[Rfam]
RNA sequence: UAAUCAGUUGCAGGGCAACUCUCCUUUGGCAAAAACUCGAUGAUUCAUUGUCUAAUGAUGAAUUUUGCCAAAGGAGAGUUGCCCCGCAGCCGAUUU
Numbered sequence: 001u002a003a004u005c006a007g008u009u010g011c012a013g014g015g016c017a018a019c020u021c022u023c024c025u026u027u028g029g030c031a032a033a034a035a036c037u038c039g040a041u042g043a044u045u046c047a048u049u050g051u052c053u054a055a056u057g058a059u060g061a062a063u064u065u066u067g068c069c070a071a072a073g074g075a076g077a078g079u080u081g082c083c084c085c086g087c088a089g090c091c092g093a094u095u096u
Base pairs, nucleotide, nucleotide: 005092007090008089009088011086013084014083015082016081017080018079019078021076022075023074024073027070028069029068030067031066032065033064034063
The record is a 96-nucleotide RNA from Arachis hypogaea, which matches "mir-399 microRNA precursor family" in Rfam. From the family's description: mir-399 was identified in both Arabidopsis thaliana and Oryza sativa computationally and was later experimentally verified. mir-399 is thought to target mRNAs coding for a phosphatase transporter. The mature sequence is excised from the 3' arm of the hairpin. Pairs were carried over by alignment from the consensus structure, which was predicted with PFOLD. Gene Ontology terms of the family: RISC complex and miRNA-mediated post-transcriptional gene silencing. It scores 59 bits against the family's covariance model. The source organism's lineage runs through Eukaryota, Streptophyta, Fabales, dalbergioids sensu lato and Arachis.